[Rfam]
RNA: ZMP/ZTP riboswitch aptamer (pfl RNA motif)
RNA sequence: CAGACUAUGUGUUACUGGCGUAAACAUGGAGAACCAUGAGGAAGCACAUAGGUAACGGCCGUACGCCUGGGCAGAGUAU
Numbered sequence: 001c002a003g004a005c006u007a008u009g010u011g012u013u014a015c016u017g018g019c020g021u022a023a024a025c026a027u028g029g030a031g032a033a034c035c036a037u038g039a040g041g042a043a044g045c046a047c048a049u050a051g052g053u054a055a056c057g058g059c060c061g062u063a064c065g066c067c068u069g070g071g072c073a074g075a076g077u078a079u
Base pairs, nucleotide, nucleotide: 003053005051006050007049008048009047010046011045012044015041016040017067018066019065020064021063026037027036028035029034056074058072059071060070
Dot-bracket structure: ..(.((((((((..(([[[[[....((((....))))..))..)))))))).)..(.(((..]]]]]..))).).....